[Rfam]
RNA: Tombusvirus 3' UTR region IV
Organism: Microcaecilia unicolor
RNA sequence: GAAAGAUACAAGGUUGCUGUGAACUUUGGUGUGGACAAUGCAUCAUAUCUGAAAAUAAACCUGACUACAGGAACACUGCAUUAAUGAGACC
Numbered sequence: 001g002a003a004a005g006a007u008a009c010a011a012g013g014u015u016g017c018u019g020u021g022a023a024c025u026u027u028g029g030u031g032u033g034g035a036c037a038a039u040g041c042a043u044c045a046u047a048u049c050u051g052a053a054a055a056u057a058a059a060c061c062u063g064a065c066u067a068c069a070g071g072a073a074c075a076c077u078g079c080a081u082u083a084a085u086g087a088g089a090c091c
Stems, first nucleotide, its partner, number of pairs: 011050004016046001019043003023032002033091002060071004076088002079086002